[Rfam]
RNA sequence: AGCAAAAUGAUGAGGUUUUAAGAUCUGAAUAUCAUGUGGAUUCCUAAUUGAAAUGGUCUUCAAAGUUUUCUGAUUACU
Dot-bracket structure: ((.((....................................................................)).))
Small nucleolar RNA R160: a 78-nucleotide RNA from Medicago truncatula. Rfam 15.1 lists 799 matches to the family in 221 species. Pairs were carried over by alignment from the consensus structure. Rfam classes the family as a C/D-box small nucleolar RNA. A search with the family's covariance model found it, with a score of 68 bits.